This 94-nucleotide RNA sequence from Tahibacter soli belongs to the Rfam family "SAH (S-adenosyl-L-homocysteine) riboswitch aptamer". On this family, see Wang et al., Mol Cell 2008: "Riboswitches that sense S-adenosylhomocysteine and activate genes involved in coenzyme recycling". It scores 45 bits against the family's covariance model. Gene Ontology terms of the family: regulation of gene expression and S-adenosylhomocysteine metabolic process.
RNA sequence: GCCGCCGAGGGGCGCUGCAAGUUCGGCCAGGCCGUGCGCCGGUACGAAAUCAGGCUCGGCGGUUUUCGGGUAACCGAAACCGCGCCCGCCCAAU
Numbered sequence: 001g002c003c004g005c006c007g008a009g010g011g012g013c014g015c016u017g018c019a020a021g022u023u024c025g026g027c028c029a030g031g032c033c034g035u036g037c038g039c040c041g042g043u044a045c046g047a048a049a050u051c052a053g054g055c056u057c058g059g060c061g062g063u064u065u066u067c068g069g070g071u072a073a074c075c076g077a078a079a080c081c082g083c084g085c086c087c088g089c090c091c092a093a094u
Stems, first nucleotide, its partner, number of pairs: 002062007022048004